[Rfam]
RNA: Guanidine-II riboswitch aptamer (mini-ykkC)
RNA sequence: ACUCGAGGACGACCUCGAGGCGAUCGUCGACUCGACGCCGGACGACCCGC
Numbered sequence: 001a002c003u004c005g006a007g008g009a010c011g012a013c014c015u016c017g018a019g020g021c022g023a024u025c026g027u028c029g030a031c032u033c034g035a036c037g038c039c040g041g042a043c044g045a046c047c048c049g050c
Stems, first nucleotide, its partner, number of pairs: 002019007037050002040047002